[Rfam]
Shown here is a 123-nucleotide RNA from Ameiurus melas, a member of the family "Small nucleolar RNA SNORA71".
Gene Ontology terms of the family: nucleolus and RNA processing.
The source organism's lineage runs through Eukaryota, Craniata, Clupeocephala, Siluriformes and Ameiurus.
It scores 87 bits against the family's covariance model.
RNA sequence: CCCUGUAUCGAAAGUGACCGUGGUGUCUGGUUGCCAGGUCAUUGAUACUACAGGGAGAGAAAAACGAAAGCCUUUCCCGUGUUUGCUAGACGUGUUCUUGCCAAACCCUGUAUCUUUCACACA
Number, nucleotide and partner (000 for none) at each position: 001c055002c054003c053004u052005g051006u050007a049008u000009c000010g000011a000012a000013a043014g042015u041016g040017a039018c038019c037020g000021u000022g035023g034024u033025g032026u000027c000028u000029g000030g000031u000032u025033g024034c023035c022036a000037g019038g018039u017040c016041a015042u014043u013044g000045a000046u000047a000048c000049u007050a006051c005052a004053g003054g002055g001056a000057g000058a000059g000060a000061a000062a000063a000064a000065c000066g118067a117068a116069a115070g114071c000072c000073u000074u000075u000076c000077c000078c000079g000080u000081g106082u105083u104084u103085g102086c100087u000088a098089g097090a096091c000092g000093u000094g000095u000096u090097c089098u088099u000100g086101c000102c085103a084104a083105a082106c081107c000108c000109u000110g000111u000112a000113u000114c070115u069116u068117u067118c066119a000120c000121a000122c000123a000
From the family's description: The members of this family belong to the H/ACA class of snoRNAs which bind a number of proteins (including dyskerin, Gar1p and Nop10p) to form snoRNP complexes. This class of snoRNAs are thought to guide the sites of modification of uridines to pseudouridines by forming direct base pairing interactions with substrate RNAs. This family includes U71 (SNORA71), ACA39 (SNORA39) and ACA60 (SNORA60). U71 and ACA60 are predicted to guide the pseudouridylation of U406 and U1004 in 18S rRNA respectively.
The base pairs follow the family's consensus structure, which was predicted with PFOLD.